[Rfam]
A member of the RNA family "Group II catalytic intron D1-D4-2" from Clostridium sp. SM-530-WT-3G, 124 nucleotides long. The family has 144 seed sequences and 1,231 matches in Rfam 15.1. A search with the family's covariance model found it, with a score of 84 bits.
RNA sequence: GAAGGAAGGUCCUUCGGUAGGAAUUGAACAGGCAAGUCUACCAAACAACCUUAAUGCUGCUGUGAUUAAAAGUUGUGGUAGUGAGCGAUUAAGGAAAAGGCUAUAAAAAAAAAAAAUAGUCAUG
Numbered sequence: 001g002a003a004g005g006a007a008g009g010u011c012c013u014u015c016g017g018u019a020g021g022a023a024u025u026g027a028a029c030a031g032g033c034a035a036g037u038c039u040a041c042c043a044a045a046c047a048a049c050c051u052u053a054a055u056g057c058u059g060c061u062g063u064g065a066u067u068a069a070a071a072g073u074u075g076u077g078g079u080a081g082u083g084a085g086c087g088a089u090u091a092a093g094g095a096a097a098a099g100g101c102u103a104u105a106a107a108a109a110a111a112a113a114a115a116a117u118a119g120u121c122a123u124g
Stems, first nucleotide, its partner, number of pairs: 001015005016042006024035003046124002049094002052091004056082002059079003063075004099121006
Rfam describes the family as follows. Group II introns are found in rRNA, tRNA and mRNA of organelles in fungi, plants and protists, and also in mRNA in bacteria. Taxonomically the source falls in Clostridium (Bacteria, Bacillota, Clostridia, Clostridiaceae).